[Rfam]
RNA sequence: GCACUCUGGUUUUCCAUCAUAUCGAGUAAAUCUUUCGCCUUUUACUAAAGAUUUCCGUGGAGGAGAGCACUGAAAUGAGUAUAUCACUCAAUUUUUGAUUUGCCCUGCAUUUUUGCCAA
Numbered sequence: 001g002c003a004c005u006c007u008g009g010u011u012u013u014c015c016a017u018c019a020u021a022u023c024g025a026g027u028a029a030a031u032c033u034u035u036c037g038c039c040u041u042u043u044a045c046u047a048a049a050g051a052u053u054u055c056c057g058u059g060g061a062g063g064a065g066a067g068c069a070c071u072g073a074a075a076u077g078a079g080u081a082u083a084u085c086a087c088u089c090a091a092u093u094u095u096u097g098a099u100u101u102g103c104c105c106u107g108c109a110u111u112u113u114u115g116c117c118a119a
Base pairs, nucleotide, nucleotide: 003080004079005078006077009068010067011066012065013064014063015062017060018059019058028054029053030052031051032050033049034048035047102117104115